Rfam assigns this 265-nucleotide sequence from Caloranaerobacter sp. TR13 to the family "Bacterial large signal recognition particle RNA". The family's RNA type in Rfam is non-coding RNA gene. For this family Rfam cites "SRPDB: Signal Recognition Particle Database" (Rosenblad et al., Nucleic Acids Res, 2003). Pairs were carried over by alignment from the consensus structure, which is taken from published work. Clan: SRP clan. NCBI's taxonomy places the organism under Bacteria, Bacillati, Tissierellales, Thermohalobacteraceae, Caloranaerobacter.
RNA sequence: CCGUGCUAGAUGGGGAGGUAGCGGUGCCCUGUAACCUGCAAUCCGCUAUAGCAGGGUCGAAUUCCCGAUUGAGGCUUGCUAUUGUGAGGUCUGCCCUGAGUAAGUGGCGUUGACGAUUGGGUCCUACGCAACGGAAAUUCAUGAACCCCGUCAGGUCCGGGAGGAAGCAGCGGUAAGUGAACACUUCCGUGUGCCGUAGGGGUGCCUGGUUUGAGUUAACUGCUCAGGUAACGCUUGGGGUAGUAAGUCAAGGUCGGGUGCACGG
Numbered sequence: 001c002c003g004u005g006c007u008a009g010a011u012g013g014g015g016a017g018g019u020a021g022c023g024g025u026g027c028c029c030u031g032u033a034a035c036c037u038g039c040a041a042u043c044c045g046c047u048a049u050a051g052c053a054g055g056g057u058c059g060a061a062u063u064c065c066c067g068a069u070u071g072a073g074g075c076u077u078g079c080u081a082u083u084g085u086g087a088g089g090u091c092u093g094c095c096c097u098g099a100g101u102a103a104g105u106g107g108c109g110u111u112g113a114c115g116a117u118u119g120g121g122u123c124c125u126a127c128g129c130a131a132c133g134g135a136a137a138u139u140c141a142u143g144a145a146c147c148c149c150g151u152c153a154g155g156u157c158c159g160g161g162a163g164g165a166a167g168c169a170g171c172g173g174u175a176a177g178u179g180a181a182c183a184c185u186u187c188c189g190u191g192u193g194c195c196g197u198a199g200g201g202g203u204g205c206c207u208g209g210u211u212u213g214a215g216u217u218a219a220c221u222g223c224u225c226a227g228g229u230a231a232c233g234c235u236u237g238g239g240g241u242a243g244u245a246a247g248u249c250a251a252g253g254u255c256g257g258g259u260g261c262a263c264g265g
Base pairs, nucleotide, nucleotide: 001265002264003263004262005261006260009058010057011056012030013029014028015027017025019023035055036054037053038052039051064258065257066256067255068254069253070252073249074248075247076246077245079243080242081241082240083239085237086236087235088234092230093229096227097226098225099224100223101222104220105219106217107216108215115211116210117209118208119207120206121205122204123200124199125198126197127196128195129191130190132189133188134187135186136185138181139180140179141178142177148173149172150171151170156165157164158163